[Rfam]
RNA sequence: GUCUGAAGAAUGACGGUCUUUGUUGAAAACAGCGCUGCUGUCGACAAGGAACCUGAGGAACCUAUCAGAC
Numbered sequence: 001g002u003c004u005g006a007a008g009a010a011u012g013a014c015g016g017u018c019u020u021u022g023u024u025g026a027a028a029a030c031a032g033c034g035c036u037g038c039u040g041u042c043g044a045c046a047a048g049g050a051a052c053c054u055g056a057g058g059a060a061c062c063u064a065u066c067a068g069a070c
Stems, first nucleotide, its partner, number of pairs: 001070005015053003018049007030040003